[Rfam]
RNA: THF (Tetrahydrofolate) riboswitch aptamer
Organism: Companilactobacillus versmoldensis
RNA sequence: UUUGGAGUAGGAUUCAAAGCGUAAAGUGCUGGUGGAACGGAAUGUGAACACCGGACAAAGGGGAUUUUCACCGCGGUUUUGUUUCCGCAUUCGCCACA
Dot-bracket structure: (.(((....(((..((((((((...((.((((((.....[[[[[....))))))))...((.(.....).))))).)))))..))).]]]]].))).)